RNA sequence: AAAAAGGGUCAGUUGGCUAAUUAUGCCACGUUCACCCUCGAUUGGUGAAUGCUGUAUGGCUAUCAAGACAUAUGGCUGACACAAUUUAUGGAAACCAAAAGGGUUGGCUCGCAUAGCCGACCCUACAU
Numbered sequence: 001a002a003a004a005a006g007g008g009u010c011a012g013u014u015g016g017c018u019a020a021u022u023a024u025g026c027c028a029c030g031u032u033c034a035c036c037c038u039c040g041a042u043u044g045g046u047g048a049a050u051g052c053u054g055u056a057u058g059g060c061u062a063u064c065a066a067g068a069c070a071u072a073u074g075g076c077u078g079a080c081a082c083a084a085u086u087u088a089u090g091g092a093a094a095c096c097a098a099a100a101g102g103g104u105u106g107g108c109u110c111g112c113a114u115a116g117c118c119g120a121c122c123c124u125a126c127a128u
Stems, first nucleotide, its partner, number of pairs: 008080005014028004029051008052075007100124010
The family of this 128-nucleotide sequence from Glycine max is "U11 spliceosomal RNA". The match comes from Rfam's covariance-model search (75 bits). Its family is annotated with mRNA 5'-splice site recognition, pre-mRNA 5'-splice site binding and U11 snRNP in the Gene Ontology. By type it is a spliceosomal small nuclear RNA. Rfam 15.1 lists 2,595 matches to the family in 1,202 species.